[Rfam]
RNA sequence: GAUCUCUGAAUCCUGAAUUUGUUUGUGUGCUGGACGGAAAUCAUCUAUCUCUAGCACCAUUUAAAUUCAGCAUUUUUGAGA
Numbered sequence: 001g002a003u004c005u006c007u008g009a010a011u012c013c014u015g016a017a018u019u020u021g022u023u024u025g026u027g028u029g030c031u032g033g034a035c036g037g038a039a040a041u042c043a044u045c046u047a048u049c050u051c052u053a054g055c056a057c058c059a060u061u062u063a064a065a066u067u068c069a070g071c072a073u074u075u076u077u078g079a080g081a
Base pairs, nucleotide, nucleotide: 013070014069015068016067017066018065019064020063021062024059025058027057028056030054031053033051034050036049
The record is an 81-nucleotide RNA from Anisakis simplex, which matches "mir-83 microRNA precursor family" in Rfam. A search with the family's covariance model found it, with a score of 68 bits. The source organism's lineage runs through Eukaryota, Bilateria, Spirurina, Ascaridoidea and Anisakis simplex complex. Rfam links the family to the GO terms miRNA-mediated post-transcriptional gene silencing and RISC complex.